Overview: Rfam assigns this 100-nucleotide sequence from Amborella trichopoda to the family "MIR319 microRNA precursor family". NCBI's taxonomy places the organism under Eukaryota, Streptophyta, Embryophyta, Amborellaceae, Amborella.
[Rfam]
RNA sequence: CAGAAAUGGGAGCUCCUUUGACGCCAAAGAAAGCAUUUCGGAUCUUCUUAUUUCUCAGUCAAGCAGUCAUCCUUUGGAGUGAAUGGAGCUCCUACUUCUU
Numbered sequence: 001c002a003g004a005a006a007u008g009g010g011a012g013c014u015c016c017u018u019u020g021a022c023g024c025c026a027a028a029g030a031a032a033g034c035a036u037u038u039c040g041g042a043u044c045u046u047c048u049u050a051u052u053u054c055u056c057a058g059u060c061a062a063g064c065a066g067u068c069a070u071c072c073u074u075u076g077g078a079g080u081g082a083a084u085g086g087a088g089c090u091c092c093u094a095c096u097u098c099u100u
Base pairs, nucleotide, nucleotide: 007094008093009092010091011090012089013088014087015086016085018083021080022079024077025076026075027074028073